Rfam assigns this 140-nucleotide RNA from Helicobacter fennelliae to the family "Bacterial antisense RNA HPnc0260". The family's consensus secondary structure was predicted with CMfinder. The match comes from Rfam's covariance-model search (82 bits).
Nucleotides: 140
Base pairs, nucleotide, nucleotide: 005032006031007030012025013024014023015022050063051062102137103136104135105134106133107132111130112129114128115127116126117125
Number, partner (000 for none) and nucleotide at each position: 001000a002000a003000a004000a005032c006031u007030u008000a009000a010000g011000u012025a013024a014023u015022g016000a017000c018000g019000a020000g021000g022015u023014a024013u025012u026000u027000u028000a029000g030007a031006a032005g033000c034000u035000a036000g037000a038000u039000u040000u041000u042000a043000a044000u045000u046000u047000g048000a049000c050063g051062u052000g053000u054000a055000a056000u057000g058000c059000g060000c061000a062051a063050u064000a065000a066000a067000u068000g069000c070000a071000a072000g073000a074000a075000a076000u077000a078000u079000u080000a081000a082000g083000a084000a085000a086000c087000a088000u089000a090000a091000a092000u093000a094000a095000a096000a097000a098000c099000a100000a101000a102137u103136g104135g105134u106133g107132g108000c109000c110000a111130c112129g113000a114128u115127u116126g117125g118000a119000c120000u121000u122000g123000a124000a125117c126116c127115a128114a129112c130111g131000a132107c133106c134105a135104c136103u137102a138000c139000c140000a